The record is a 72-nucleotide RNA sequence from Fusobacterium gonidiaformans, which matches "Glycine riboswitch aptamer" in Rfam.
RNA sequence: AUGAAGAUAUAAGGAGAGAGCGAGAGCCACCGAAGAAGUAAAUCUUUCAGGUAAAAGGACUUAUAUUGGACG
Numbered sequence: 001a002u003g004a005a006g007a008u009a010u011a012a013g014g015a016g017a018g019a020g021c022g023a024g025a026g027c028c029a030c031c032g033a034a035g036a037a038g039u040a041a042a043u044c045u046u047u048c049a050g051g052u053a054a055a056a057g058g059a060c061u062u063a064u065a066u067u068g069g070a071c072g
Stems, first nucleotide, its partner, number of pairs: 006067008020027002029052003032048002036046003

On this family, see Babina et al., MBio 2017: "In Vivo Behavior of the Tandem Glycine Riboswitch in Bacillus subtilis". Rfam 15.1 lists 9,425 matches to the family in 5,228 species. Its family is annotated with glycine biosynthetic process in the Gene Ontology. A search with the family's covariance model found it, with a score of 54 bits.